Rfam assigns this 273-nucleotide RNA from Molossus molossus to the family "Mason-Pfizer monkey virus packaging signal". For this family Rfam cites "Mutational analysis of the predicted secondary RNA structure of the Mason-Pfizer monkey virus packaging signal" (Mustafa et al., Virus Res, 2004).
[Rfam]
RNA sequence: UGGCGCCCAACGUGGGGCUCCAGCACGGGGGAUCCAGUGAAGGACGCCGACGCCGUUCGAGCGGCUGGCAGAAAGGAAAAGAAAAGAGGGAACGACGUGGGAACCUGCUGCGUCUGCACCCCUCGGGUAAGUGAACGGCGAUUAUUGGUCAAGCAUUGAGCCAAGAUAAGAUGUUCGUUGAAGGACUAGGAAAGGCUAUAAAGGCACGAGGAGUAAAGGUAAAAAUUAAGCAUUUGUGUCAGUAUUUUGAUUAUAUUAAAGAAGUUUGUCCUU
Numbered sequence: 001u002g003g004c005g006c007c008c009a010a011c012g013u014g015g016g017g018c019u020c021c022a023g024c025a026c027g028g029g030g031g032a033u034c035c036a037g038u039g040a041a042g043g044a045c046g047c048c049g050a051c052g053c054c055g056u057u058c059g060a061g062c063g064g065c066u067g068g069c070a071g072a073a074a075g076g077a078a079a080a081g082a083a084a085a086g087a088g089g090g091a092a093c094g095a096c097g098u099g100g101g102a103a104c105c106u107g108c109u110g111c112g113u114c115u116g117c118a119c120c121c122c123u124c125g126g127g128u129a130a131g132u133g134a135a136c137g138g139c140g141a142u143u144a145u146u147g148g149u150c151a152a153g154c155a156u157u158g159a160g161c162c163a164a165g166a167u168a169a170g171a172u173g174u175u176c177g178u179u180g181a182a183g184g185a186c187u188a189g190g191a192a193a194g195g196c197u198a199u200a201a202a203g204g205c206a207c208g209a210g211g212a213g214u215a216a217a218g219g220u221a222a223a224a225a226u227u228a229a230g231c232a233u234u235u236g237u238g239u240c241a242g243u244a245u246u247u248u249g250a251u252u253a254u255a256u257u258a259a260a261g262a263a264g265u266u267u268g269u270c271c272u273u
Base pairs, nucleotide, nucleotide: 006031007030008029012026013025014024039047086124087123088122089120090119093116096112097111098110099109100108132151133150134149136148138146157200158199160196161195162194207249208248209247210246211245213243214242217235218234219233220232258273259272261270262269
Rfam classes the family as a cis-regulatory element.
The base pairs follow the family's consensus structure, which was predicted with PFOLD.
Rfam 15.1 lists 2,921 matches to the family in 53 species.
About the family: This family represents a group of sequences that are related to the Mason-Pfizer monkey virus (MPMV) packaging signal. The packaging signal is located in the 5' UTR and is required for specific RNA encapsidation.